[Rfam]
RNA sequence: GGGUGAAUAGCAGGGCAAUUCUCCCUUGGCAGGGAUAUCAUAUAUUGUAACCGGCAUGAACACUUAAUAUUUCCCUGCCAAUGGAGAAUCACACUGUUAUUCAUCU
Number, nucleotide and partner (000 for none) at each position: 001g000002g000003g000004u000005g102006a101007a100008u099009a098010g000011c096012a095013g094014g000015g092016c000017a000018a089019u088020u000021c086022u085023c084024c083025c000026u000027u080028g079029g078030c077031a076032g075033g074034g073035a072036u000037a000038u000039c000040a000041u000042a000043u000044a000045u000046u000047g000048u000049a000050a000051c000052c000053g000054g000055c000056a000057u000058g000059a000060a000061c000062a000063c000064u000065u000066a000067a000068u000069a000070u000071u000072u035073c034074c033075c032076u031077g030078c029079c028080a027081a000082u000083g024084g023085a022086g021087a000088a019089u018090c000091a000092c015093a000094c013095u012096g011097u000098u009099a008100u007101u006102c005103a000104u000105c000106u000
RNA: mir-399 microRNA precursor family
Organism: Macleaya cordata